mir-395 microRNA precursor family: a 106-nucleotide sequence from Miscanthus lutarioriparius.
[Rfam]
RNA sequence: GUGUUACCAUGAGUUCCCUUCAAGCACUUCACGUGAGGCACCAUUGAAAUAACUCUUUUUAAGAUUAGGUGUAAUGUGAAGUGUUUGGGGGAACUCUUGGUGAUAC
Number, nucleotide and partner (000 for none) at each position: 001g000002u000003g000004u000005u102006a101007c100008c099009a098010u000011g096012a095013g094014u093015u092016c091017c090018c089019u088020u087021c000022a086023a085024g084025c083026a082027c081028u080029u079030c078031a077032c076033g075034u074035g000036a072037g000038g000039c000040a000041c000042c000043a000044u000045u000046g000047a000048a000049a000050u000051a000052a000053c000054u000055c000056u000057u000058u000059u000060u000061a000062a000063g000064a000065u000066u000067a000068g000069g000070u000071g000072u036073a000074a034075u033076g032077u031078g030079a029080a028081g027082u026083g025084u024085u023086u022087g020088g019089g018090g017091g016092a015093a014094c013095u012096c011097u000098u009099g008100g007101u006102g005103a000104u000105a000106c000
A reference for the family is Jones-Rhoades and Bartel (2004), "Computational Identification of Plant MicroRNAs and Their Targets, Including a Stress-Induced miRNA", Mol Cell. The family's consensus secondary structure was predicted with PFOLD. Lineage of the source: Eukaryota > Viridiplantae > Tracheophyta > Magnoliopsida > Miscanthus. Rfam 15.1 lists 2,798 matches to the family in 234 species. Rfam describes the family as follows. mir-395 was identified in both Arabidopsis thaliana and Oryza sativa computationally and was later experimentally verified. mir-395 is thought to target mRNAs coding for ATP sulphurylases.